[Rfam]
RNA: Small nucleolar RNA R44/J54/Z268 family
RNA sequence: UGUGCAAGUGAUGAUAAAAUAGACAGGGACAUCAGCACUCCCAUGUCGGAGUAUGAUGAUUUGCCUUUGGGAAUCUCUUUGAUGCACA
Numbered sequence: 001u002g003u004g005c006a007a008g009u010g011a012u013g014a015u016a017a018a019a020u021a022g023a024c025a026g027g028g029a030c031a032u033c034a035g036c037a038c039u040c041c042c043a044u045g046u047c048g049g050a051g052u053a054u055g056a057u058g059a060u061u062u063g064c065c066u067u068u069g070g071g072a073a074u075c076u077c078u079u080u081g082a083u084g085c086a087c088a
Stems, first nucleotide, its partner, number of pairs: 002087005